Rfam assigns this 75-nucleotide RNA sequence from Cnephaeus nilssonii to the family "mir-9193 microRNA precursor family". Gene Ontology terms of the family: RISC complex and miRNA-mediated post-transcriptional gene silencing. The match comes from Rfam's covariance-model search (72 bits). Lineage of the source: Eukaryota > Theria > Yangochiroptera > Vespertilionidae > Cnephaeus.
Nucleotides: 075
Base pairs, nucleotide, nucleotide: 006070008068010067011066013064014063015062016061017060018059019058021056022055023054024053025052026051028049029048031046032045033044034043035042
Number, partner (000 for none) and nucleotide at each position: 001000c002000u003000c004000a005000g006070g007000u008068c009000a010067g011066g012000g013064g014063g015062g016061g017060u018059c019058c020000c021056u022055c023054a024053g025052c026051c027000u028049g029048g030000a031046u032045u033044g034043c035042g036000a037000g038000a039000g040000g041000g042035c043034g044033c045032a046031g047000g048029c049028c050000a051026g052025g053024c054023u055022g056021a057000c058019g059018g060017a061016c062015c063014c064013c065000a066011c067010c068008g069000g070006u071000g072000c073000a074000u075000g